[Rfam]
RNA sequence: GGGAAACCGGCGCGGACGUUCCCGCCGCCAACCCGGUCAGGUUCGGAAGAAAGCAGCCGUAACGGUCUUCGGAACGGGUCGUCGUCCGGUUUCCUUUA
Numbered sequence: 001g002g003g004a005a006a007c008c009g010g011c012g013c014g015g016a017c018g019u020u021c022c023c024g025c026c027g028c029c030a031a032c033c034c035g036g037u038c039a040g041g042u043u044c045g046g047a048a049g050a051a052a053g054c055a056g057c058c059g060u061a062a063c064g065g066u067c068u069u070c071g072g073a074a075c076g077g078g079u080c081g082u083c084g085u086c087c088g089g090u091u092u093c094c095u096u097u098a
Base pairs, nucleotide, nucleotide: 002094003093004092005091006090008084009083010082011081012080013077017076018075019074020073021072022071024066025065026064027063034059035058036057037056042051043050044049
Shown here is a 98-nucleotide RNA from Acetobacter sp. CAG:977, a member of the family "Bacterial small signal recognition particle RNA". The family's consensus secondary structure is taken from published work. Taxonomically the source falls in Acetobacter (Bacteria, Pseudomonadati, Pseudomonadota, Acetobacteraceae).